This 190-nucleotide sequence from Richelia intracellularis belongs to the Rfam family "6S / SsrS RNA". The literature on the family includes a 2000 paper in Cell by Wassarman and Storz, "6S RNA regulates E. coli RNA polymerase activity". The family's consensus secondary structure is taken from published work. About the family: E. coli 6S RNA was the first non coding RNA to be sequenced, but its function was unknown until recently. It consists of 184 nucleotides that fold into an extended hairpin structure with a large single-stranded internal bulge. The 6S RNA specifically associates with RNA polymerase holoenzyme containing the sigma70 specificity factor. Rfam classes the family as a non-coding RNA gene.
RNA sequence: GUUAUACUGUGACGUUGGUGACUGCCAUCAAGUUUUUUGAUCUAUGUCUUUAAGAAUAAGGGAACCAUACAGUAAUAUUUCGUGGCAGUAGACCGUGGCAUUGUACCCGGAAACUUCAAACGAAAAUAAUUGGUGCCCACCUGGUUUAACCAGGUCAGAAACUUAGGUAAAACGGCGUUGUGGUAAACUU
Numbered sequence: 001g002u003u004a005u006a007c008u009g010u011g012a013c014g015u016u017g018g019u020g021a022c023u024g025c026c027a028u029c030a031a032g033u034u035u036u037u038u039g040a041u042c043u044a045u046g047u048c049u050u051u052a053a054g055a056a057u058a059a060g061g062g063a064a065c066c067a068u069a070c071a072g073u074a075a076u077a078u079u080u081c082g083u084g085g086c087a088g089u090a091g092a093c094c095g096u097g098g099c100a101u102u103g104u105a106c107c108c109g110g111a112a113a114c115u116u117c118a119a120a121c122g123a124a125a126a127u128a129a130u131u132g133g134u135g136c137c138c139a140c141c142u143g144g145u146u147u148a149a150c151c152a153g154g155u156c157a158g159a160a161a162c163u164u165a166g167g168u169a170a171a172a173c174g175g176c177g178u179u180g181u182g183g184u185a186a187a188c189u190u
Stems, first nucleotide, its partner, number of pairs: 003187001005185011018173002033161004038157006060138003064134004078125006088114002093110003097106001